[Rfam]
Nucleotides: 096
Base pairs, nucleotide, nucleotide: 003093004092005091006090007089008088009087010086011085012084013083014082015081016080017079018078019077020076021075022074023073024072025071026070027069029068030067035062036061038059039058043052044051
Number, partner (000 for none) and nucleotide at each position: 001000u002000g003093g004092u005091g006090g007089c008088u009087c010086c011085a012084a013083c014082c015081g016080g017079g018078a019077c020076u021075a022074a023073a024072g025071g026070u027069c028000c029068c030067c031000g032000c033000c034000a035062c036061c037000u038059a039058c040000a041000u042000g043052c044051u045000g046000g047000c048000g049000c050000g051044a052043g053000u054000a055000g056000c057000c058039g059038u060000u061036g062035g063000g064000g065000c066000a067030g068029g069027g070026a071025c072024c073023u074022u075021u076020a077019g078018u079017c080016c081015c082014g083013g084012u085011u086010g087009g088008a089007g090006c091005c092004a093003c094000c095000a096000a
Rfam assigns this 96-nucleotide RNA sequence from Miscanthus lutarioriparius to the family "MIR5387 microRNA precursor family".